Shown here is a 93-nucleotide RNA from Streptomyces clavuligerus, a member of the family "ZMP/ZTP riboswitch aptamer (pfl RNA motif)".

RNA sequence: AGUACGCAGGGCGACUGGCGUACGCGGAAUGGACCGCGGGGGAGCCGUGCGCGCGGGAACGAGAACGAGGCGCCGACCGCCUGGGCGCCCCGG
Numbered sequence: 001a002g003u004a005c006g007c008a009g010g011g012c013g014a015c016u017g018g019c020g021u022a023c024g025c026g027g028a029a030u031g032g033a034c035c036g037c038g039g040g041g042g043a044g045c046c047g048u049g050c051g052c053g054c055g056g057g058a059a060c061g062a063g064a065a066c067g068a069g070g071c072g073c074c075g076a077c078c079g080c081c082u083g084g085g086c087g088c089c090c091c092g093g
Base pairs, nucleotide, nucleotide: 003053005051006050007049008048010046011045012044015041016040017081018080019079020078024037025036026035027034070088071087072086073085074084
The match comes from Rfam's covariance-model search (46 bits).